[Rfam]
A member of the RNA family "c-di-AMP riboswitch aptamer (ydaO/yuaA leader)" from Georgenia yuyongxinii, 170 nucleotides long. A search with the family's covariance model found it, with a score of 56 bits. For this family Rfam cites "New RNA motifs suggest an expanded scope for riboswitches in bacterial genetic control" (Barrick et al., Proc Natl Acad Sci U S A, 2004).

RNA sequence: CGCCGAACCCUGCCACCCACCCGGGGCCCACGGACACGUGGCAGGGACGGGGGACCCAUCGUUUUCCGGUCCUGGACAACCAGGACCUUGGGGUGAAGUGCGGCCAUGGCGGCGCACCGGGUGUUCUCCCACCCGAACCCGACAGCUCACCCCGAAGGCGGCAGGAGAGG
Numbered sequence: 001c002g003c004c005g006a007a008c009c010c011u012g013c014c015a016c017c018c019a020c021c022c023g024g025g026g027c028c029c030a031c032g033g034a035c036a037c038g039u040g041g042c043a044g045g046g047a048c049g050g051g052g053g054a055c056c057c058a059u060c061g062u063u064u065u066c067c068g069g070u071c072c073u074g075g076a077c078a079a080c081c082a083g084g085a086c087c088u089u090g091g092g093g094u095g096a097a098g099u100g101c102g103g104c105c106a107u108g109g110c111g112g113c114g115c116a117c118c119g120g121g122u123g124u125u126c127u128c129c130c131a132c133c134c135g136a137a138c139c140c141g142a143c144a145g146c147u148c149a150c151c152c153c154g155a156a157g158g159c160g161g162c163a164g165g166a167g168a169g170g
Stems, first nucleotide, its partner, number of pairs: 001160004008046009048154005057090002091140003099116004119134004
About this RNA
Rfam describes the family as follows. This family represents a conserved RNA structure found upstream of the ydaO and yuaA genes in Bacillus subtilis and related genes in other bacteria.